The record is an 80-nucleotide RNA from Tolypothrix bouteillei, which matches "Photosynthesis regulatory RNA1" in Rfam. Pairs were carried over by alignment from the consensus structure, which was predicted with CMfinder. From the family's description: Formerly known as Syr1 discovered in Synechocystis sp PCC 6803, is a regulatory factor controlling photosynthetic functions. PsrR1 interacts with the ribosome binding regions of several photosynthesis-related mRNAs. In particular, psaL mRNA is processed by RNase E only in the presence of PsrR1. NCBI's taxonomy places the organism under Bacteria, Bacillati, Nostocales, Tolypothrix, Tolypothrix bouteillei.

[Rfam]
RNA sequence: AAAAUAUUGAAUCUCGGUAUCAGUUCUCAUCGUCAUUCGGACUUCUCCUACUUACCUCGGUUGGUUUCACCGAGGUUUUU
Numbered sequence: 001a002a003a004a005u006a007u008u009g010a011a012u013c014u015c016g017g018u019a020u021c022a023g024u025u026c027u028c029a030u031c032g033u034c035a036u037u038c039g040g041a042c043u044u045c046u047c048c049u050a051c052u053u054a055c056c057u058c059g060g061u062u063g064g065u066u067u068c069a070c071c072g073a074g075g076u077u078u079u080u
Stems, first nucleotide, its partner, number of pairs: 054076008